[Rfam]
RNA sequence: CGUCAUCUCUGAUGACCACCAAUGAUCUAUCAGUCUGUGAAGAUCGCCUUCGGGUGACUGAAUCACUUUUCCAAAGCCUGCAAGGAAAAGGGCGUGAUUAAGAAACGCGGCAAAUUUGCCAUCCUUUGAGAGCAAAUGUCAUCAGGUAAUUUAAA
Numbered sequence: 001c002g003u004c005a006u007c008u009c010u011g012a013u014g015a016c017c018a019c020c021a022a023u024g025a026u027c028u029a030u031c032a033g034u035c036u037g038u039g040a041a042g043a044u045c046g047c048c049u050u051c052g053g054g055u056g057a058c059u060g061a062a063u064c065a066c067u068u069u070u071c072c073a074a075a076g077c078c079u080g081c082a083a084g085g086a087a088a089a090g091g092g093c094g095u096g097a098u099u100a101a102g103a104a105a106c107g108c109g110g111c112a113a114a115u116u117u118g119c120c121a122u123c124c125u126u127u128g129a130g131a132g133c134a135a136a137u138g139u140c141a142u143c144a145g146g147u148a149a150u151u152u153a154a155a
Base pairs, nucleotide, nucleotide: 002016003015004014005013006012024045025044026043027042028041030061031060032059033058034057035056046055047054048053067089068088069087070086071085076111077110078109092108093107094106115136116135117134118133119132121152125149126148138147139146140145

The record is a 155-nucleotide sequence from Pectobacterium atrosepticum, which matches "STAXI RNA" in Rfam.